Rfam assigns this 78-nucleotide RNA sequence from Trabulsiella odontotermitis to the family "sroE RNA". This family consists of a number of bacterial sroE RNA genes of around 90 bases in length. sroE is found in several Enterobacterial species but its function is unknown. The family's consensus secondary structure was predicted with PFOLD.
RNA sequence: AUAACGUGAUGGGAAGCGAUGCGCUUCCCGUGUAUGAUUGAACCCGCGGGCGCAUCAGCGCUAAGGGUUCAUUUUUGU
Dot-bracket structure: .........(((((((((...)))))))))........(((((((...................))))))).......
Numbered sequence: 001a002u003a004a005c006g007u008g009a010u011g012g013g014a015a016g017c018g019a020u021g022c023g024c025u026u027c028c029c030g031u032g033u034a035u036g037a038u039u040g041a042a043c044c045c046g047c048g049g050g051c052g053c054a055u056c057a058g059c060g061c062u063a064a065g066g067g068u069u070c071a072u073u074u075u076u077g078u
Stems, first nucleotide, its partner, number of pairs: 010030009039071007